[Rfam]
RNA sequence: GAACCGCCCCAACGGCUUCCUGACGGGGUGGGGAUAUCAACAAUGGAGCA
Numbered sequence: 001g002a003a004c005c006g007c008c009c010c011a012a013c014g015g016c017u018u019c020c021u022g023a024c025g026g027g028g029u030g031g032g033g034a035u036a037u038c039a040a041c042a043a044u045g046g047a048g049c050a
Stems, first nucleotide, its partner, number of pairs: 004031007013022002015049003019046002

This 50-nucleotide sequence from Thioclava pacifica belongs to the Rfam family "SAM/SAH riboswitch aptamer".
Its family is annotated with S-adenosylmethionine metabolic process and regulation of gene expression in the Gene Ontology.
For this family Rfam cites "The structure of the SAM/SAH-binding riboswitch" (Weickhmann et al., Nucleic Acids Res, 2019).